[Rfam]
RNA sequence: AGCUUUGCACAGUGGCAGUAUCGUAGCCAAUGAGGUUUAUCCGAGGCACAAUUAUUACUAAUUGAAAACUUUUCCCAAUACCCCCCCAUGACGACUUGAAAUAUACUCGGCAUUAGCAAUUUUUGACAGUGUUGUAAAAAA
Numbered sequence: 001a002g003c004u005u006u007g008c009a010c011a012g013u014g015g016c017a018g019u020a021u022c023g024u025a026g027c028c029a030a031u032g033a034g035g036u037u038u039a040u041c042c043g044a045g046g047c048a049c050a051a052u053u054a055u056u057a058c059u060a061a062u063u064g065a066a067a068a069c070u071u072u073u074c075c076c077a078a079u080a081c082c083c084c085c086c087c088a089u090g091a092c093g094a095c096u097u098g099a100a101a102u103a104u105a106c107u108c109g110g111c112a113u114u115a116g117c118a119a120u121u122u123u124u125g126a127c128a129g130u131g132u133u134g135u136a137a138a139a140a141a
Stems, first nucleotide, its partner, number of pairs: 020052002023049002026047003034042002086116001088113003092109003096105001130141001132139002
This 141-nucleotide sequence from Cebus imitator belongs to the Rfam family "U4 spliceosomal RNA". It scores 97 bits against the family's covariance model. The base pairs follow the family's consensus structure, which is taken from published work. About the family: U4 small nuclear RNA (U4 snRNA) is a component of the major U2-dependent spliceosome.